[Rfam]
RNA: Plastid-psbN 5UTR RNA
Nucleotides: 061
Base pairs, nucleotide, nucleotide: 017045018044019043020042021041022040023039024038025037027035
Number, partner (000 for none) and nucleotide at each position: 001000u002000a003000c004000a005000a006000c007000a008000c009000c010000u011000a012000u013000c014000a015000a016000a017045g018044g019043a020042g021041u022040a023039g024038u025037u026000c027035c028000c029000c030000a031000c032000c033000u034000c035027g036000a037025a038024g039023c040022u041021a042020c043019u044018u045017u046000a047000c048000c049000a050000u051000a052000u053000u054000a055000u056000g057000a058000a059000u060000u061000u